[Rfam]
Nucleotides: 132
Stems, first nucleotide, its partner, number of pairs: 002059006014047008023039001026037001072125005080118004091110005097104002
Number, partner (000 for none) and nucleotide at each position: 001000a002059g003058g004057u005056c006055a007054u008000u009000u010000c011000a012000a013000a014047g015046a016045g017044g018043g019042c020041u021040u022000g023039u024000a025000g026037g027000u028000c029000u030000g031000u032000g033000a034000a035000a036000c037026c038000a039023a040021g041020a042019g043018c044017u045016c046015u047014u048000a049000a050000c051000g052000c053000u054007g055006u056005g057004a058003c059002c060000a061000a062000a063000g064000a065000u066000u067000u068000a069000a070000g071000u072125u073124c074123u075122c076121u077000u078000g079000u080118a081117g082116g083115g084000u085000g086000a087000u088000g089000c090000c091110a092109u093108a094107g095106c096000u097104c098103c099000c100000a101000g102000u103098g104097g105000u106095g107094c108093u109092a110091u111000g112000u113000u114000u115083c116082c117081c118080u119000g120000a121076g122075g123074a124073g125072a126000u127000a128000c129000a130000a131000g132000a
Overview
This 132-nucleotide RNA from Carlito syrichta belongs to the Rfam family "Small nucleolar RNA SNORA25". Gene Ontology terms of the family: RNA processing and nucleolus. About the family: ACA25 is a member of the H/ACA class of snoRNA that guide the sites of modification of uridines to pseudouridines. A search with the family's covariance model found it, with a score of 122 bits. Rfam 15.1 lists 1,129 matches to the family in 449 species. It is annotated as an H/ACA-box small nucleolar RNA.